Rfam assigns this 80-nucleotide RNA from Sulfitobacter brevis to the family "chrB-a RNA".

[Rfam]
RNA sequence: CGCAUGGGGACCGCGAUUGCCCCGUGAGGCUCCGGCCCAAGGAUCGCAUCCUGAAAAUUGAUCCAAGGAUGCACGCUAUG
Dot-bracket structure: ....(((((..........))))).....................((((((...............))))))........